The family of this 128-nucleotide RNA sequence from Formicarius rufipectus is "Small nucleolar RNA SNORA17". It scores 57 bits against the family's covariance model. The family's consensus secondary structure was predicted with RNAalifold. A reference for the family is Ofengand and Bakin (1997), "Mapping to nucleotide resolution of pseudouridine residues in large subunit ribosomal RNAs from representative eukaryotes, prokaryotes, archaebacteria, mitochondria and chloroplasts", J Mol Biol. snoRNA ACA 17 belongs to the H/ACA family of snoRNAs and is predicted to guide pseudouridylation of the 28S rRNA at positions U4659 and U4598. It shares the same host gene together with ACA43. NB This family has a high threshold value to exclude a large number of closely related sequences that do not appear to have conserved H and ACA boxes, and may be pseudogenes.
[Rfam]
RNA sequence: AUUGCCCCAGCUUGUGUUGCAGGCGUGGCUUCAGUGCCACGUUUGUGUCAUUCGGUGGCAGAGAGGAUAAGGUGAGGGCUUCCCCUGGUGCUCUGACCCACGUGGGCUCCCACGAUUGCUCCACAACC
Number, nucleotide and partner (000 for none) at each position: 001a000002u061003u060004g059005c058006c057007c055008c054009a000010g052011c000012u000013u000014g048015u047016g000017u000018u000019g046020c045021a044022g043023g000024c041025g040026u039027g038028g037029c036030u000031u000032c000033a000034g000035u000036g029037c028038c027039a026040c025041g024042u000043u022044u021045g020046u019047g015048u014049c000050a000051u000052u010053c000054g008055g007056u000057g006058g005059c004060a003061g002062a000063g000064a000065g000066g000067a000068u125069a000070a000071g122072g121073u000074g000075a120076g119077g000078g000079c000080u000081u115082c114083c000084c000085c000086u000087g111088g110089u000090g107091c106092u105093c104094u000095g000096a000097c000098c000099c000100a000101c000102g000103u000104g093105g092106g091107c090108u000109c000110c088111c087112a000113c000114g082115a081116u000117u000118g000119c076120u075121c072122c071123a000124c000125a068126a000127c000128c000